Shown here is a 100-nucleotide RNA from Paenibacillus methanolicus, a member of the family "Purine riboswitch aptamer". Taxonomically the source falls in Paenibacillus (Bacteria, Bacillati, Bacillota, Bacilli). Rfam 15.1 lists 4,097 matches to the family in 1,411 species. The family is grouped with related families in Rfam's "Purine riboswitches". The family's consensus secondary structure is taken from published work.

RNA sequence: CUGGGAAAGUCGGUUUUCGCCAGUAUAUCCCCAUUAAGACGGUUUGGGGGUCUCUACCAGGAGCCAAUUAAUCCUGACUACGGGUAUGGAAUGCACGGGA
Dot-bracket structure: ..................(((.(((...(((((...........)))))........(((((.........)))))..))).)))...............
Numbered sequence: 001c002u003g004g005g006a007a008a009g010u011c012g013g014u015u016u017u018c019g020c021c022a023g024u025a026u027a028u029c030c031c032c033a034u035u036a037a038g039a040c041g042g043u044u045u046g047g048g049g050g051u052c053u054c055u056a057c058c059a060g061g062a063g064c065c066a067a068u069u070a071a072u073c074c075u076g077a078c079u080a081c082g083g084g085u086a087u088g089g090a091a092u093g094c095a096c097g098g099g100a
Stems, first nucleotide, its partner, number of pairs: 019085003023081003029049005058076005